[Rfam]
RNA sequence: CGCAGCCUCGUCAAAUUCGGUGCCCUCCUCCGCCGUGGUGGGGACCGGCCCAAGGGCUGCCACAGCGACGUCUGUGCUCCACGGGCCCCGCGUCCCUGGCGUGGGAUGUCGGGGAUCAAAACGGAUUACGGACACUC
Number, nucleotide and partner (000 for none) at each position: 001c000002g060003c059004a058005g057006c000007c000008u000009c000010g000011u000012c000013a000014a000015a000016u000017u000018c047019g046020g045021u044022g000023c042024c041025c040026u000027c038028c037029u000030c000031c000032g000033c000034c000035g000036u000037g028038g027039u000040g025041g024042g023043g000044a021045c020046c019047g018048g000049c000050c000051c000052a000053a000054g000055g000056g000057c005058u004059g003060c002061c000062a000063c000064a000065g000066c000067g000068a000069c000070g000071u000072c000073u000074g129075u128076g127077c000078u125079c124080c000081a000082c000083g000084g000085g000086c114087c113088c112089c111090g110091c000092g000093u000094c000095c000096c000097u000098g000099g000100c000101g000102u000103g000104g000105g000106a000107u000108g000109u000110c090111g089112g088113g087114g086115a000116u000117c000118a000119a000120a000121a000122c000123g000124g079125a078126u000127u076128a075129c074130g000131g000132a000133c000134a000135c000136u000137c000